[Rfam]
RNA: Mammalian CPEB3 ribozyme
Organism: Chelydra serpentina
RNA sequence: UGUGGGGGGGGGGGGGGCAUAGCAAGAGAAUUUGUCACAGCCCCAGUCAGAUUCCCUGAAUCUGUGAAUCCUGCU
Number, nucleotide and partner (000 for none) at each position: 001u000002g000003u000004g000005g000006g000007g000008g000009g000010g000011g000012g000013g044014g043015g042016g041017g000018c000019a000020u000021a075022g074023c073024a072025a000026g070027a069028g038029a000030a000031u000032u000033u000034g000035u000036c000037a000038c028039a000040g000041c016042c015043c014044c013045a000046g000047u000048c064049a063050g062051a061052u060053u059054c058055c000056c000057u000058g054059a053060a052061u051062c050063u049064g048065u000066g000067a000068a000069u027070c026071c000072u024073g023074c022075u021